[Rfam]
RNA sequence: CGGGCCGGGGCUGCGGGCGGUAAAAGACCUAAGAACCCAGGGAAAAAACCUUCCCAACCAACCAAACCCCGCCUACGUCACCCUGGCGGGUGAAACUGGUGGGUGCGAGUGGCGCGGUGGCCGUUCGGGCGUGCAGUCUCGCCCCAGGCACCAUCACAACCCCACACAUGCAUCGGCCCCCGCCGGGACGGCAAUCCCAGUGCGAGGGCCUGACCAUCGAGGAAGUAGGCCCUUCCCC
Numbered sequence: 001c002g003g004g005c006c007g008g009g010g011c012u013g014c015g016g017g018c019g020g021u022a023a024a025a026g027a028c029c030u031a032a033g034a035a036c037c038c039a040g041g042g043a044a045a046a047a048a049c050c051u052u053c054c055c056a057a058c059c060a061a062c063c064a065a066a067c068c069c070c071g072c073c074u075a076c077g078u079c080a081c082c083c084u085g086g087c088g089g090g091u092g093a094a095a096c097u098g099g100u101g102g103g104u105g106c107g108a109g110u111g112g113c114g115c116g117g118u119g120g121c122c123g124u125u126c127g128g129g130c131g132u133g134c135a136g137u138c139u140c141g142c143c144c145c146a147g148g149c150a151c152c153a154u155c156a157c158a159a160c161c162c163c164a165c166a167c168a169u170g171c172a173u174c175g176g177c178c179c180c181c182g183c184c185g186g187g188a189c190g191g192c193a194a195u196c197c198c199a200g201u202g203c204g205a206g207g208g209c210c211u212g213a214c215c216a217u218c219g220a221g222g223a224a225g226u227a228g229g230c231c232c233u234u235c236c237c238c
Stems, first nucleotide, its partner, number of pairs: 007218002010215001016073004078093006175210005181204003185198004221236005
RNA: Streptomyces sRNA 4677
Organism: Streptomyces viridochromogenes